[Rfam]
RNA sequence: GGCUUUGUGCAGUGGCGGUAUCGUAGCCAAUGAGGUUAACCCAAGGCACGACUAUUGCUAAAAUAAAAAUAAAUAAAAAUGGAAAUUUAGGGCAUUUGAAAAUGUCAAAUGGUUUUCCUUGGUAUAGUUGGUUUAAAA
Numbered sequence: 001g002g003c004u005u006u007g008u009g010c011a012g013u014g015g016c017g018g019u020a021u022c023g024u025a026g027c028c029a030a031u032g033a034g035g036u037u038a039a040c041c042c043a044a045g046g047c048a049c050g051a052c053u054a055u056u057g058c059u060a061a062a063a064u065a066a067a068a069a070u071a072a073a074u075a076a077a078a079a080u081g082g083a084a085a086u087u088u089a090g091g092g093c094a095u096u097u098g099a100a101a102a103u104g105u106c107a108a109a110u111g112g113u114u115u116u117c118c119u120u121g122g123u124a125u126a127g128u129u130g131g132u133u134u135a136a137a138a
Base pairs, nucleotide, nucleotide: 021051022050023049024048026047027046028045034042035041084113086111088109091106092105093104094103095102096101128138129137
Dot-bracket structure: ....................((((.(((.....((.....))..)))))))................................(.(.(..((((((....))))))..).).)..............((.......))

U4 spliceosomal RNA: a 138-nucleotide RNA from Podarcis muralis.
Lineage of the source: Eukaryota > Opisthokonta > Deuterostomia > Sauria > Podarcis.
About the family: U4 small nuclear RNA (U4 snRNA) is a component of the major U2-dependent spliceosome.
For this family Rfam cites "Mechanism of 5' splice site transfer for human spliceosome activation" (Charenton et al., Science, 2019).
Rfam classes the family as a spliceosomal small nuclear RNA.